[Rfam]
RNA sequence: GUACGAUACUAGCAAAACCACUGAAAAGUGGCGACGCAAAGCUACAGGGGCUAAUGCGGAUCUGAAACGCGACCGCGAUGCUAGCCAGUUGCCGAA
Numbered sequence: 001g002u003a004c005g006a007u008a009c010u011a012g013c014a015a016a017a018c019c020a021c022u023g024a025a026a027a028g029u030g031g032c033g034a035c036g037c038a039a040a041g042c043u044a045c046a047g048g049g050g051c052u053a054a055u056g057c058g059g060a061u062c063u064g065a066a067a068c069g070c071g072a073c074c075g076c077g078a079u080g081c082u083a084g085c086c087a088g089u090u091g092c093c094g095a096a
Stems, first nucleotide, its partner, number of pairs: 012037002018031005040090004047086002049082003056076004
Rfam assigns this 96-nucleotide sequence from Cohnella xylanilytica to the family "c-di-GMP-I riboswitch aptamer".
Pairs were carried over by alignment from the consensus structure, which is taken from published work.
The family has 155 seed sequences and 5,092 matches in Rfam 15.1.